[Rfam]
RNA: Group II catalytic intron D1-D4-1
Organism: Vitreoscilla filiformis
RNA sequence: CGCGUGGCGUGGCAACACGUUGCGUGAUGGUGCAGAAGUCAGCAGAGGCCAUAGUAGGGGCGCAGGGUAAGCGCGCUGAAGGGC
Numbered sequence: 001c002g003c004g005u006g007g008c009g010u011g012g013c014a015a016c017a018c019g020u021u022g023c024g025u026g027a028u029g030g031u032g033c034a035g036a037a038g039u040c041a042g043c044a045g046a047g048g049c050c051a052u053a054g055u056a057g058g059g060g061c062g063c064a065g066g067g068u069a070a071g072c073g074c075g076c077u078g079a080a081g082g083g084c
Stems, first nucleotide, its partner, number of pairs: 001026002004023008039046002048084003057077002060074003